SAM riboswitch aptamer (S box leader): a 125-nucleotide RNA from Geothermobacter ehrlichii. NCBI's taxonomy places the organism under Bacteria, Pseudomonadati, Desulfuromonadia, Desulfuromonadales, Geothermobacter. The SAM riboswitch is found upstream of a number of genes which code for proteins involved in methionine or cysteine biosynthesis in Gram-positive bacteria. The SAM riboswitch acts at the level of transcription termination control. It scores 78 bits against the family's covariance model. Rfam links the family to the GO term regulation of gene expression.

RNA sequence: UCUUUAUCGCGAGUGGUGGAGGGACAGGCCCUGUGAAGCCACAGCAACCGGUCCGCCGGCAAGCCGGCGGGUGUCAGGUGCUAAUUCCUGCCCGUCAUGAAUUCACAUGCCGGGAAAGAUGAGGA
Numbered sequence: 001u002c003u004u005u006a007u008c009g010c011g012a013g014u015g016g017u018g019g020a021g022g023g024a025c026a027g028g029c030c031c032u033g034u035g036a037a038g039c040c041a042c043a044g045c046a047a048c049c050g051g052u053c054c055g056c057c058g059g060c061a062a063g064c065c066g067g068c069g070g071g072u073g074u075c076a077g078g079u080g081c082u083a084a085u086u087c088c089u090g091c092c093c094g095u096c097a098u099g100a101a102u103u104c105a106c107a108u109g110c111c112g113g114g115a116a117a118g119a120u121g122a123g124g125a
Stems, first nucleotide, its partner, number of pairs: 001125008013042005021031003025090004043082004048078002050075002086117001091114004096109004